RNA sequence: GAUAAGCGCGUGAGGGAUUGCAGCGGCAUCCUUUUUUGAGGUACGAGAAAAAGAUAUAGCGUAAAGCCCGACCCCGA
Numbered sequence: 001g002a003u004a005a006g007c008g009c010g011u012g013a014g015g016g017a018u019u020g021c022a023g024c025g026g027c028a029u030c031c032u033u034u035u036u037u038g039a040g041g042u043a044c045g046a047g048a049a050a051a052a053g054a055u056a057u058a059g060c061g062u063a064a065a066g067c068c069c070g071a072c073c074c075c076g077a
Base pairs, nucleotide, nucleotide: 014069015068016067018065019064023060024059028055029054030053034050035049036048037047
Source information:
The family of this 77-nucleotide RNA sequence from Hyunsoonleella pacifica is "Flavo-1 RNA". NCBI's taxonomy places the organism under Bacteria, Flavobacteriia, Flavobacteriales, Flavobacteriaceae, Hyunsoonleella. The base pairs follow the family's consensus structure, which is taken from published work. It is annotated as a small RNA. A search with the family's covariance model found it, with a score of 48 bits.